RNA sequence: UGGCAGUGAGGAAUACUGCACCUUAGUGAUGGUGGGGUCCAUCACACCAGUCUGAUCCUUCAGAUGAAAUAUGGUGCAUCUGAGCCA
Numbered sequence: 001u002g003g004c005a006g007u008g009a010g011g012a013a014u015a016c017u018g019c020a021c022c023u024u025a026g027u028g029a030u031g032g033u034g035g036g037g038u039c040c041a042u043c044a045c046a047c048c049a050g051u052c053u054g055a056u057c058c059u060u061c062a063g064a065u066g067a068a069a070u071a072u073g074g075u076g077c078a079u080c081u082g083a084g085c086c087a
Stems, first nucleotide, its partner, number of pairs: 001087004

small nucleolar RNA snoR114: an 87-nucleotide RNA from Rhamnella rubrinervis. The source organism's lineage runs through Eukaryota, Streptophytina, Tracheophyta, Spermatophyta and Rhamnella. On this family, see Chen and Wu, Nucleic Acids Res 2009: "Mining small RNA sequencing data: a new approach to identify small nucleolar RNAs in Arabidopsis".